[Rfam]
The record is a 74-nucleotide sequence from Capitella teleta, which matches "mir-153 microRNA precursor family" in Rfam. Its family is annotated with miRNA-mediated post-transcriptional gene silencing and RISC complex in the Gene Ontology. It is one of the family's seed sequences.

RNA sequence: GAAUACGACAGCUUUUGUGGUUAUCAAUUGUGAAUUCUGAGACAAAUUGCAUAGUCACAAAAGUGAUCGUAAUC
Numbered sequence: 001g002a003a004u005a006c007g008a009c010a011g012c013u014u015u016u017g018u019g020g021u022u023a024u025c026a027a028u029u030g031u032g033a034a035u036u037c038u039g040a041g042a043c044a045a046a047u048u049g050c051a052u053a054g055u056c057a058c059a060a061a062a063g064u065g066a067u068c069g070u071a072a073u074c
Base pairs, nucleotide, nucleotide: 002073004071005070006069007068009065011064012063013062014061015060016059017058018057019056020055021054025049026048027047028046029045